Notes
A member of the RNA family "Ascomycota telomerase RNA" from Colletotrichum liriopes, 365 nucleotides of a longer RNA. The pairing is the family consensus, mapped onto this sequence. Gene Ontology terms of the family: telomere maintenance via telomerase, telomerase activity and telomerase catalytic core complex. It scores 440 bits against the family's covariance model.
RNA sequence: AACCAAGCAGAGCGAGCUUCCCGAUUGCUUCGGACUACACAGAAAUGGAAUUUAGUUCGCCGAACUCCGGAUGGCCGUGUAGGUGAUGGCUGUGCAUCGCGAAAAGGGAUCUAUGCUGGGCGACCCCGCGAGGCCUCGUGUCGGAGGCGCUGAACGGCUGAACAUUGUUAAGGCGAUCCCGGGACCCAUCUCGUGUUGGAGUCAAAGUUUUGUGCUUGUCCGGGGUCGCCGAGGACAUGGGCUGCUAGUCUCCCCCACCGCUCGAGGCUUGUGCGCUCGUUGGAUCAAAAGGACAGGCCAUUGGAAGGUAGUCCUGGUUGCCGUCUCUCCAGAAAUGGCGAGAUGGCAACCCCCUGUGGCUGGGG
Number, nucleotide and partner (000 for none) at each position: 001a000002a000003c000004c000005a000006a000007g000008c000009a000010g000011a000012g000013c000014g000015a000016g000017c000018u000019u000020c000021c000022c000023g000024a000025u000026u000027g000028c000029u000030u000031c000032g000033g000034a000035c000036u000037a000038c000039a000040c000041a000042g000043a000044a000045a000046u000047g000048g000049a000050a000051u000052u000053u000054a000055g000056u000057u000058c000059g000060c000061c000062g000063a000064a000065c000066u000067c000068c000069g000070g000071a000072u000073g000074g000075c000076c000077g000078u000079g000080u000081a000082g000083g000084u000085g000086a000087u000088g000089g000090c000091u000092g000093u000094g000095c000096a000097u000098c000099g000100c000101g000102a000103a000104a000105a000106g000107g000108g000109a000110u000111c000112u000113a000114u000115g000116c000117u000118g000119g000120g000121c000122g000123a000124c000125c000126c000127c000128g000129c000130g000131a000132g000133g000134c000135c000136u000137c000138g000139u000140g000141u000142c000143g000144g000145a000146g000147g000148c000149g000150c000151u000152g000153a000154a000155c000156g000157g000158c000159u000160g000161a000162a000163c000164a000165u000166u000167g000168u000169u000170a000171a000172g000173g000174c000175g000176a000177u000178c000179c000180c000181g000182g000183g203184a202185c201186c199187c198188a197189u000190c000191u000192c000193g000194u000195g000196u000197u188198g187199g186200a000201g185202u184203c183204a000205a217206a216207g215208u214209u000210u000211u000212g000213u000214g208215c207216u206217u205218g000219u000220c000221c000222g000223g000224g000225g000226u000227c000228g000229c000230c000231g000232a000233g000234g000235a000236c000237a000238u000239g000240g000241g000242c000243u000244g000245c000246u000247a000248g000249u000250c000251u000252c000253c000254c000255c000256c000257a000258c000259c000260g000261c000262u000263c000264g000265a000266g000267g000268c000269u000270u000271g000272u000273g000274c000275g000276c000277u000278c000279g000280u000281u000282g000283g000284a000285u000286c000287a000288a000289a000290a000291g000292g000293a000294c000295a000296g000297g000298c000299c000300a000301u000302u000303g000304g000305a000306a000307g000308g000309u000310a000311g000312u000313c000314c000315u000316g000317g000318u000319u000320g000321c000322c000323g000324u000325c000326u000327c000328u000329c000330c000331a000332g000333a000334a000335a000336u000337g000338g000339c000340g000341a000342g000343a000344u000345g000346g000347c000348a000349a000350c000351c000352c000353c000354c000355u000356g000357u000358g000359g000360c000361u000362g000363g000364g000365g000